[Rfam]
RNA sequence: AAGCCGGCAAGAACCAUGUGAAUCACUACACUGCUUGAUUCAAAUGGUUCAUACACA
Numbered sequence: 001a002a003g004c005c006g007g008c009a010a011g012a013a014c015c016a017u018g019u020g021a022a023u024c025a026c027u028a029c030a031c032u033g034c035u036u037g038a039u040u041c042a043a044a045u046g047g048u049u050c051a052u053a054c055a056c057a
Stems, first nucleotide, its partner, number of pairs: 007054001009052001011050007019042007

This 57-nucleotide RNA from Camellia sinensis belongs to the Rfam family "Plastid-ccsA-ndhD-1 3UTR RNA". The literature on the family includes a 2004 paper in Nucleic Acids Res by Zandueta-Criado and Bock, "Surprising features of plastid ndhD transcripts: addition of non-encoded nucleotides and polysome association of mRNAs with an unedited start codon". Rfam classes the family as a cis-regulatory element. The source organism's lineage runs through Eukaryota, Embryophyta, Tracheophyta, Euphyllophyta and Camellia. The family is grouped with related families in Rfam's "Plastid-ccsA_ndhD 3UTR RNA clan". Rfam 15.1 lists 1,322 matches to the family in 557 species. About the family: Plastid-ccsA-ndhD-1 is a non-coding RNA (ncRNA) recognised in plastids. It was found in the three prime untranslated region (3UTR) of ccsA and ndhD genes, its 3UTR location suggests a role in transcript maturation.